[Rfam]
RNA: RNase MRP
Organism: Millerozyma farinosa
RNA sequence: UCCAUGGCUGAAGAUUUGCUUGCAAGGUCUACGAACGGUCAGUAAACUGACAGUAAUACCUUGGGGAAAGUCUCCUGCCUUUAUGCGGAAACGCAAUGGAUAAUAGACUCCAUUUGGAUGGCAUUUACAAAAGUUGUGGUGGCGUAUUGCCAUGAUGUUUGGUCUUCAGUUGUUCUUCUGAACACUGAAGCCAACUCACAUCUUGGGAUUAUACGGUAUGUCACUAACUUCUUUUGGGUGGUGUUCAAUACUCCCAGCUGGCUUCCAGCUGGUGAUCACUUCGGCAACGGGAAUUUGUUUCCUAAACGAUAGUUAUAGCGAAUGAUUUUGUUAAAACUUGAUUAACACAAUGGAGCUUACUUCAAUCCAUGG
Numbered sequence: 001u002c003c004a005u006g007g008c009u010g011a012a013g014a015u016u017u018g019c020u021u022g023c024a025a026g027g028u029c030u031a032c033g034a035a036c037g038g039u040c041a042g043u044a045a046a047c048u049g050a051c052a053g054u055a056a057u058a059c060c061u062u063g064g065g066g067a068a069a070g071u072c073u074c075c076u077g078c079c080u081u082u083a084u085g086c087g088g089a090a091a092c093g094c095a096a097u098g099g100a101u102a103a104u105a106g107a108c109u110c111c112a113u114u115u116g117g118a119u120g121g122c123a124u125u126u127a128c129a130a131a132a133g134u135u136g137u138g139g140u141g142g143c144g145u146a147u148u149g150c151c152a153u154g155a156u157g158u159u160u161g162g163u164c165u166u167c168a169g170u171u172g173u174u175c176u177u178c179u180g181a182a183c184a185c186u187g188a189a190g191c192c193a194a195c196u197c198a199c200a201u202c203u204u205g206g207g208a209u210u211a212u213a214c215g216g217u218a219u220g221u222c223a224c225u226a227a228c229u230u231c232u233u234u235u236g237g238g239u240g241g242u243g244u245u246c247a248a249u250a251c252u253c254c255c256a257g258c259u260g261g262c263u264u265c266c267a268g269c270u271g272g273u274g275a276u277c278a279c280u281u282c283g284g285c286a287a288c289g290g291g292a293a294u295u296u297g298u299u300u301c302c303u304a305a306a307c308g309a310u311a312g313u314u315a316u317a318g319c320g321a322a323u324g325a326u327u328u329u330g331u332u333a334a335a336a337c338u339u340g341a342u343u344a345a346c347a348c349a350a351u352g353g354a355g356c357u358u359a360c361u362u363c364a365a366u367c368c369a370u371g372g
Base pairs, nucleotide, nucleotide: 002372003371004370005369006368007367009364010363011362014323015322016321017320018319019318023063024062025061026060027059028058038051039050040049041048042047068358069357070356072355073354074353075352084095085094086093087092227294229292231290232289234287235286236285240281241280252275253274260270261269262268263267325342326341327340330337